[Rfam]
RNA sequence: CGGCUGCGUCCCUCACUCAACUUGGUUGUGGUGAUACAACCAUCACAACCUCCUUGAGUGAGUGAUGCUGCCC
Numbered sequence: 001c002g003g004c005u006g007c008g009u010c011c012c013u014c015a016c017u018c019a020a021c022u023u024g025g026u027u028g029u030g031g032u033g034a035u036a037c038a039a040c041c042a043u044c045a046c047a048a049c050c051u052c053c054u055u056g057a058g059u060g061a062g063u064g065a066u067g068c069u070g071c072c073c
Stems, first nucleotide, its partner, number of pairs: 009064001012062009024050002027047007